[Rfam]
RNA sequence: AAUAAGUAUCAAGAGACAGUUUAAGUACUGGACCAACCGAGCAGACAUAGCCACGGUGGUAAAAACGAUACGAGUUUAACGAUUUAGAGCCAUAAUCAUU
Numbered sequence: 001a002a003u004a005a006g007u008a009u010c011a012a013g014a015g016a017c018a019g020u021u022u023a024a025g026u027a028c029u030g031g032a033c034c035a036a037c038c039g040a041g042c043a044g045a046c047a048u049a050g051c052c053a054c055g056g057u058g059g060u061a062a063a064a065a066c067g068a069u070a071c072g073a074g075u076u077u078a079a080c081g082a083u084u085u086a087g088a089g090c091c092a093u094a095a096u097c098a099u100u
Stems, first nucleotide, its partner, number of pairs: 006071005017030004032060003037056003041051002044096001047093002073084004